RNA sequence: GCUGGCGCAGGUGAUGACUCUUUCCCCGUCAGAGCGACCGUGCCGACCAUCGCCAUGCAAGCCAGGCCGUGUCUGAAGCGCCAGC
Numbered sequence: 001g002c003u004g005g006c007g008c009a010g011g012u013g014a015u016g017a018c019u020c021u022u023u024c025c026c027c028g029u030c031a032g033a034g035c036g037a038c039c040g041u042g043c044c045g046a047c048c049a050u051c052g053c054c055a056u057g058c059a060a061g062c063c064a065g066g067c068c069g070u071g072u073c074u075g076a077a078g079c080g081c082c083a084g085c
Stems, first nucleotide, its partner, number of pairs: 001085008